[Rfam]
RNA sequence: GCGAGGGUGGCGGAAUUGGUAGACGCACCAGACUUAGGAUCUGGCGCCUUACGGUGUGGGGGUUCGAGCCCCCCCUCUCGCA
Numbered sequence: 001g002c003g004a005g006g007g008u009g010g011c012g013g014a015a016u017u018g019g020u021a022g023a024c025g026c027a028c029c030a031g032a033c034u035u036a037g038g039a040u041c042u043g044g045c046g047c048c049u050u051a052c053g054g055u056g057u058g059g060g061g062g063u064u065c066g067a068g069c070c071c072c073c074c075c076u077c078u079c080g081c082a
Stems, first nucleotide, its partner, number of pairs: 001081007010026003028044005058074005

Rfam assigns this 82-nucleotide RNA from Desulfopila aestuarii to the family "tRNA". Pairs were carried over by alignment from the consensus structure, which is taken from published work. Rfam's curators write: Transfer RNA (tRNA) molecules are approximately 80 nucleotides in length.